[Rfam]
RNA sequence: UGCCGAAGUUUUCCUCGGCAGUUAACUGCAGCCAUAUUUCUAAAACUUCAGCAGUUAACUGCCGAAGGGUAU
Number, nucleotide and partner (000 for none) at each position: 001u000002g000003c000004c000005g000006a000007a000008g000009u000010u000011u000012u068013c067014c000015u065016c064017g063018g062019c061020a060021g059022u058023u057024a056025a055026c054027u053028g052029c051030a000031g000032c000033c000034a000035u000036a000037u000038u000039u000040c000041u000042a000043a000044a000045a000046c000047u000048u000049c000050a000051g029052c028053a027054g026055u025056u024057a023058a022059c021060u020061g019062c018063c017064g016065a015066a000067g013068g012069g000070u000071a000072u000